[Rfam]
RNA sequence: CUACUCCCUCUGUUCCAAAAUAUAAGAACGUUUUUCAUACUAGUGUAGUAUGAAAAACGUUUUUAUAUUUUGGGAUGGAGAGAGUAG
Numbered sequence: 001c002u003a004c005u006c007c008c009u010c011u012g013u014u015c016c017a018a019a020a021u022a023u024a025a026g027a028a029c030g031u032u033u034u035u036c037a038u039a040c041u042a043g044u045g046u047a048g049u050a051u052g053a054a055a056a057a058c059g060u061u062u063u064u065a066u067a068u069u070u071u072g073g074g075a076u077g078g079a080g081a082g083a084g085u086a087g
Base pairs, nucleotide, nucleotide: 003085004084005083008080009079010078011077013075014074015073016072017071019069020068021067022066023065024064025063026062027061028060029059030058031057032056033055034054035053036052037051038050039049040048041047
RNA: MIR1120/MIR1122 microRNA precursor family